The family of this 195-nucleotide RNA sequence from Lachnospiraceae bacterium TWA4 is "Clostridiales-1 RNA". The family's consensus secondary structure is taken from published work. Lineage of the source: Bacteria > Bacillati > Clostridia > Lachnospirales > Lachnospiraceae.

RNA sequence: UGAUACUAGGGUCAAAAGGUCACAUUUUCAUGCUUGCAUGAAAAAUUGUGACUUUGGGACCCGCAAAAACAUGAAAAAUUCGUCAUAAGGCAUCCGUCACUUUGUGACACCUUACGACAUAAAGCAGCCCAAUUAGGGCGAAUUUUGAAUGUUUUUAGGAUUUUGAGAGUGCAAAGCACGAAAAAAUCCGUAUCA
Numbered sequence: 001u002g003a004u005a006c007u008a009g010g011g012u013c014a015a016a017a018g019g020u021c022a023c024a025u026u027u028u029c030a031u032g033c034u035u036g037c038a039u040g041a042a043a044a045a046u047u048g049u050g051a052c053u054u055u056g057g058g059a060c061c062c063g064c065a066a067a068a069a070c071a072u073g074a075a076a077a078a079u080u081c082g083u084c085a086u087a088a089g090g091c092a093u094c095c096g097u098c099a100c101u102u103u104g105u106g107a108c109a110c111c112u113u114a115c116g117a118c119a120u121a122a123a124g125c126a127g128c129c130c131a132a133u134u135a136g137g138g139c140g141a142a143u144u145u146u147g148a149a150u151g152u153u154u155u156u157a158g159g160a161u162u163u164u165g166a167g168a169g170u171g172c173a174a175a176g177c178a179c180g181a182a183a184a185a186a187u188c189c190g191u192a193u194c195a
Stems, first nucleotide, its partner, number of pairs: 001195006010061004016055009027043001028041005065156008075146004082139003086135003158189007169179004